[Rfam]
RNA: Small nucleolar RNA SNORD22
RNA sequence: UGCCAAUGAGGAAAGCAGACCUCCUGUCUUACCCCUGUUCUACCCCAGAGCCAGUAAUGGUGAACCCACUGGGGCUAACUGGGAGAAAGGAUGAAAUUUCAUUCCAUAAGGAAUUGUCUGAGGUAC
Numbered sequence: 001u002g003c004c005a006a007u008g009a010g011g012a013a014a015g016c017a018g019a020c021c022u023c024c025u026g027u028c029u030u031a032c033c034c035c036u037g038u039u040c041u042a043c044c045c046c047a048g049a050g051c052c053a054g055u056a057a058u059g060g061u062g063a064a065c066c067c068a069c070u071g072g073g074g075c076u077a078a079c080u081g082g083g084a085g086a087a088a089g090g091a092u093g094a095a096a097u098u099u100c101a102u103u104c105c106a107u108a109a110g111g112a113a114u115u116g117u118c119u120g121a122g123g124u125a126c
Stems, first nucleotide, its partner, number of pairs: 001125004